Overview: Shown here is a 134-nucleotide RNA sequence from Castor canadensis, a member of the family "U11 spliceosomal RNA". The organism belongs to Castor, within Eukaryota.
RNA sequence: AAAAAGGGCUUCUGUCGUGAGUGGCACACGUAGGGCAACUUCAUUGCUCUGAGUGUGGAAUCAACAUCAAGAGAUUCUGGAAGCAUAAUUUUUUGGUAUCUGGGCAGCUGGUGAUCACUGGGCCUAGCGCCAUU
Numbered sequence: 001a002a003a004a005a006g007g008g009c010u011u012c013u014g015u016c017g018u019g020a021g022u023g024g025c026a027c028a029c030g031u032a033g034g035g036c037a038a039c040u041u042c043a044u045u046g047c048u049c050u051g052a053g054u055g056u057g058g059a060a061u062c063a064a065c066a067u068c069a070a071g072a073g074a075u076u077c078u079g080g081a082a083g084c085a086u087a088a089u090u091u092u093u094u095g096g097u098a099u100c101u102g103g104g105c106a107g108c109u110g111g112u113g114a115u116c117a118c119u120g121g122g123c124c125u126a127g128c129g130c131c132a133u134u
Stems, first nucleotide, its partner, number of pairs: 008084005013026005027055003031051008056079007103131003107128005113123001115121002
It scores 111 bits against the family's covariance model. Rfam 15.1 lists 2,595 matches to the family in 1,202 species.